[Rfam]
RNA: Neisseria metabolic switch regulator b (RcoF1/NgncR163)
Organism: Neisseria meningitidis
RNA sequence: CCGUCGAGUUGCUUGAUGCAGCUUGAUUUUUCUCCUCUAUUUCUCCUUUGUAGACUUGGCACACAUUCAACUGGAUGUGUGCAUUUUU
Numbered sequence: 001c002c003g004u005c006g007a008g009u010u011g012c013u014u015g016a017u018g019c020a021g022c023u024u025g026a027u028u029u030u031u032c033u034c035c036u037c038u039a040u041u042u043c044u045c046c047u048u049u050g051u052a053g054a055c056u057u058g059g060c061a062c063a064c065a066u067u068c069a070a071c072u073g074g075a076u077g078u079g080u081g082c083a084u085u086u087u088u
Stems, first nucleotide, its partner, number of pairs: 003027009036054005059082010